[Rfam]
RNA sequence: AAUUGAAAAAGGCAAACUACAUCGAAAGAGUAGGACGCAAAGCUAAGAGUCUAAAAUGUAAUAGUAUACAUCAUGAUCGCCUGGCUACCAAU
Numbered sequence: 001a002a003u004u005g006a007a008a009a010a011g012g013c014a015a016a017c018u019a020c021a022u023c024g025a026a027a028g029a030g031u032a033g034g035a036c037g038c039a040a041a042g043c044u045a046a047g048a049g050u051c052u053a054a055a056a057u058g059u060a061a062u063a064g065u066a067u068a069c070a071u072c073a074u075g076a077u078c079g080c081c082u083g084g085c086u087a088c089c090a091a092u
Base pairs, nucleotide, nucleotide: 012038013037017033018032019031020030022029023028041086042085043084044083046082047081049077050076051075056071057070058069059068

A member of the RNA family "c-di-GMP-I riboswitch aptamer" from Lentibacillus cibarius, 92 nucleotides long.